The record is a 183-nucleotide RNA from Duncaniella muris, which matches "Bacteroidales-1 6S-Bacteroidales RNA suggested" in Rfam. Pairs were carried over by alignment from the consensus structure, which is taken from published work. By type it is a small RNA. Bacteroidales-1 was first reported in a comparative genomics-based approach of genome and metagenome sequences from Weinberg et al. 2010 In a high-resolution transcriptome map study of Bacteroides thetaiotaomicron, Ryan et al. 2020 report this sRNA as 6S RNA homologue of Bacteroides, in the study they obtain evidence of small product RNAs (pRNAs) related to 6S function. The source organism's lineage runs through Bacteria, Pseudomonadati, Bacteroidia, Muribaculaceae and Duncaniella.
RNA sequence: CGCCGGAGCACGAUUGGGAAACUCAUCAAUUAUUCUUGAAAUACCGAGACAAGCUUAGUCGCCCGAUGGCGGGCCUCAUCCCCUUUCGGGGAGGCGUAAUUGCCCGGAGGAUUACAAAGGUCGGCGAGCACUCAAAUCCUGUCAUUCGGAGUUUCAUCAUCUUCCUCCGGCGUGGUUCUUAUA
Numbered sequence: 001c002g003c004c005g006g007a008g009c010a011c012g013a014u015u016g017g018g019a020a021a022c023u024c025a026u027c028a029a030u031u032a033u034u035c036u037u038g039a040a041a042u043a044c045c046g047a048g049a050c051a052a053g054c055u056u057a058g059u060c061g062c063c064c065g066a067u068g069g070c071g072g073g074c075c076u077c078a079u080c081c082c083c084u085u086u087c088g089g090g091g092a093g094g095c096g097u098a099a100u101u102g103c104c105c106g107g108a109g110g111a112u113u114a115c116a117a118a119g120g121u122c123g124g125c126g127a128g129c130a131c132u133c134a135a136a137u138c139c140u141g142u143c144a145u146u147c148g149g150a151g152u153u154u155c156a157u158c159a160u161c162u163u164c165c166u167c168c169g170g171c172g173u174g175g176u177u178c179u180u181a182u183a
Stems, first nucleotide, its partner, number of pairs: 053129003058125004063120002067116002074110004081090003093104003